[Rfam]
RNA sequence: GCCGGUCCUCGGUAGUGGCGCCCGGAAAGGCGCGGCCCACGCCGCCGCCCCGGGAGCUUCGAUCGAAGACCGGC
Numbered sequence: 001g002c003c004g005g006u007c008c009u010c011g012g013u014a015g016u017g018g019c020g021c022c023c024g025g026a027a028a029g030g031c032g033c034g035g036c037c038c039a040c041g042c043c044g045c046c047g048c049c050c051c052g053g054g055a056g057c058u059u060c061g062a063u064c065g066a067a068g069a070c071c072g073g074c
Stems, first nucleotide, its partner, number of pairs: 001074007009066005017058003021054005030048003
Rfam assigns this 74-nucleotide sequence from Streptomyces paludis to the family "Actino-pnp RNA". The match comes from Rfam's covariance-model search (59 bits). Rfam classes the family as a cis-regulatory element.